Background: This 92-nucleotide RNA sequence from Musa acuminata belongs to the Rfam family "Small nucleolar RNA R11/Z151". For this family Rfam cites "Identification of 66 box C/D snoRNAs in Arabidopsis thaliana: extensive gene duplications generated multiple isoforms predicting new ribosomal RNA 2'-O-methylation sites" (Barneche et al., J Mol Biol, 2001). Rfam links the family to the GO terms nucleolus and RNA processing. Lineage of the source: Eukaryota > Viridiplantae > Tracheophyta > Liliopsida > Musa acuminata. The match comes from Rfam's covariance-model search (66 bits). The family has 5 seed sequences and 802 matches in Rfam 15.1.
[Rfam]
RNA sequence: UGGCUGAUGAUGAGUGGUCUUAAUCCUCUUAGCGGAUUUCAGUGAGACUCUGGUCUUUGAUCUGAUUCUUGUUGUUACACACACUGAAGCCU
Numbered sequence: 001u002g003g004c005u006g007a008u009g010a011u012g013a014g015u016g017g018u019c020u021u022a023a024u025c026c027u028c029u030u031a032g033c034g035g036a037u038u039u040c041a042g043u044g045a046g047a048c049u050c051u052g053g054u055c056u057u058u059g060a061u062c063u064g065a066u067u068c069u070u071g072u073u074g075u076u077a078c079a080c081a082c083a084c085u086g087a088a089g090c091c092u
Base pairs, nucleotide, nucleotide: 002091003090004089005088